The record is an 88-nucleotide RNA from Alteribacter keqinensis, which matches "c-di-GMP-I riboswitch aptamer" in Rfam. Lineage of the source: Bacteria > Bacillota > Bacilli > Bacillaceae > Alteribacter. Its Rfam clan is "c-di-GMP_I riboswitch clan".
[Rfam]
RNA sequence: CUAGUUCAACGGCAAACCUAUCGAAAGGUAGUGACGCAAAGCUACGGGUCUAAGGGACGCGCUGUUCUAUGACCGCCGAGCCACCUAG
Numbered sequence: 001c002u003a004g005u006u007c008a009a010c011g012g013c014a015a016a017c018c019u020a021u022c023g024a025a026a027g028g029u030a031g032u033g034a035c036g037c038a039a040a041g042c043u044a045c046g047g048g049u050c051u052a053a054g055g056g057a058c059g060c061g062c063u064g065u066u067c068u069a070u071g072a073c074c075g076c077c078g079a080g081c082c083a084c085c086u087a088g
Base pairs, nucleotide, nucleotide: 012037013036018031019030020029021028022027041081042080043079045078046077047076048073049072050071055067056066057065058064